[Rfam]
RNA: U4atac minor spliceosomal RNA
Organism: Prolemur simus
RNA sequence: UCCUUUUCUUAAGGUAGCACUACUGUCCAAUGAACGAGUGAGGACAGUACUGCUAAUGCCUGCACAACACGCCCACAUCAACUAGAGCAAUAAGAUUUUAUCAUUUUUAAUGCUUUAA
Numbered sequence: 001u002c003c004u005u006u007u008c009u010u011a012a013g014g015u016a017g018c019a020c021u022a023c024u025g026u027c028c029a030a031u032g033a034a035c036g037a038g039u040g041a042g043g044a045c046a047g048u049a050c051u052g053c054u055a056a057u058g059c060c061u062g063c064a065c066a067a068c069a070c071g072c073c074c075a076c077a078u079c080a081a082c083u084a085g086a087g088c089a090a091u092a093a094g095a096u097u098u099u100a101u102c103a104u105u106u107u108u109a110a111u112g113c114u115u116u117a118a
Base pairs, nucleotide, nucleotide: 002014003013004012005011017053018052019051022048023047024046025045026044027043028042034039084116085115086114087113088112089111092107093106094105095104096103